[Rfam]
RNA sequence: UCAUGUUACAGCUCUUUUAGAAUUUGUCUAGCAGGUUUAACUGUUUGUACCAGAAAUGCCUCC
Number, nucleotide and partner (000 for none) at each position: 001u000002c000003a000004u000005g000006u000007u000008a000009c000010a000011g000012c000013u000014c000015u000016u000017u000018u000019a000020g000021a000022a000023u000024u000025u000026g000027u000028c000029u000030a000031g000032c000033a000034g060035g059036u058037u056038u055039a000040a000041c053042u052043g050044u049045u000046u000047g000048u000049a044050c043051c000052a042053g041054a000055a038056a037057u000058g036059c035060c034061u000062c000063c000
RNA: U7 small nuclear RNA
Organism: Tupaia belangeri